RNA sequence: GGAUAGCGCACUUUUUGCUAUCCCUGGCCAAUAACGCAAUGACAUGUAUGAUAACUUUUCUACGUGUCAUUGUGUUAUUGGCCGGAAAUAGCAAAACAAUGAUAUCC
Numbered sequence: 001g002g003a004u005a006g007c008g009c010a011c012u013u014u015u016u017g018c019u020a021u022c023c024c025u026g027g028c029c030a031a032u033a034a035c036g037c038a039a040u041g042a043c044a045u046g047u048a049u050g051a052u053a054a055c056u057u058u059u060c061u062a063c064g065u066g067u068c069a070u071u072g073u074g075u076u077a078u079u080g081g082c083c084g085g086a087a088a089u090a091g092c093a094a095a096a097c098a099a100u101g102a103u104a105u106c107c
Stems, first nucleotide, its partner, number of pairs: 002106004013096009024085025050059002
RNA: MIR6274 microRNA precursor family